[Rfam]
RNA sequence: CGAGACAACUCUCUCUAAGGAACUCGGCAAAAUAGCCCCGUAACUUCAGGAGAUGGGGUGCCCCCUCACAAAAGGGGGCCACAGUGACCAGGCCCGGGCGACUGUUUACCAAAAAUAUAGGUCUCCGCAAAGUCGUAAGACCAUGUAUGGGGGCUGACGCCUACCCAGUGCCGGAAGGUCAAUGAAGUUGUUGAACUGAUGACAGGGAAACUGACGACCGAAGCCCCGGUGAACGGCGGCCGUAACUAUAACGGUCCUAAGGUAGCAAAAUUCCUUGUCGGGUAAGUUCCGAUCUGCAUGAAGGGCGUAACGAUCUGGGCACUGUCUCGGAGAGAGGCUCGAUGAAAUAGACAUGUCUGUGAAGAUGCGGACUA
Numbered sequence: 001c002g003a004g005a006c007a008a009c010u011c012u013c014u015c016u017a018a019g020g021a022a023c024u025c026g027g028c029a030a031a032a033u034a035g036c037c038c039c040g041u042a043a044c045u046u047c048a049g050g051a052g053a054u055g056g057g058g059u060g061c062c063c064c065c066u067c068a069c070a071a072a073a074g075g076g077g078g079c080c081a082c083a084g085u086g087a088c089c090a091g092g093c094c095c096g097g098g099c100g101a102c103u104g105u106u107u108a109c110c111a112a113a114a115a116u117a118u119a120g121g122u123c124u125c126c127g128c129a130a131a132g133u134c135g136u137a138a139g140a141c142c143a144u145g146u147a148u149g150g151g152g153g154c155u156g157a158c159g160c161c162u163a164c165c166c167a168g169u170g171c172c173g174g175a176a177g178g179u180c181a182a183u184g185a186a187g188u189u190g191u192u193g194a195a196c197u198g199a200u201g202a203c204a205g206g207g208a209a210a211c212u213g214a215c216g217a218c219c220g221a222a223g224c225c226c227c228g229g230u231g232a233a234c235g236g237c238g239g240c241c242g243u244a245a246c247u248a249u250a251a252c253g254g255u256c257c258u259a260a261g262g263u264a265g266c267a268a269a270a271u272u273c274c275u276u277g278u279c280g281g282g283u284a285a286g287u288u289c290c291g292a293u294c295u296g297c298a299u300g301a302a303g304g305g306c307g308u309a310a311c312g313a314u315c316u317g318g319g320c321a322c323u324g325u326c327u328c329g330g331a332g333a334g335a336g337g338c339u340c341g342a343u344g345a346a347a348u349a350g351a352c353a354u355g356u357c358u359g360u361g362a363a364g365a366u367g368c369g370g371a372c373u374a
Stems, first nucleotide, its partner, number of pairs: 001341004009336008018327003035059005044049001060079007080084001092320007099312002103117003120155008128145001132141003158307004164236002168234002170230005177225003184218001238256006257261001277293006355372005
RNA: Archaeal large subunit ribosomal RNA, nucleotides 2956 to 3329